About this RNA: The family of this 102-nucleotide RNA from Alteribacillus persepolensis is "Purine riboswitch aptamer". A search with the family's covariance model found it, with a score of 89 bits.
[Rfam]
RNA sequence: CAAGUUCAAACAAAACCCUCUCGUAUAAUCUUGGAAAUAUGGUCCAUAAGUUUCUACCAAACUACCGUAAAUAGUUUGACUACGAGAGAGAAAGACACCACA
Numbered sequence: 001c002a003a004g005u006u007c008a009a010a011c012a013a014a015a016c017c018c019u020c021u022c023g024u025a026u027a028a029u030c031u032u033g034g035a036a037a038u039a040u041g042g043u044c045c046a047u048a049a050g051u052u053u054c055u056a057c058c059a060a061a062c063u064a065c066c067g068u069a070a071a072u073a074g075u076u077u078g079a080c081u082a083c084g085a086g087a088g089a090g091a092a093a094g095a096c097a098c099c100a101c102a
Stems, first nucleotide, its partner, number of pairs: 018088008029049001032046004058078007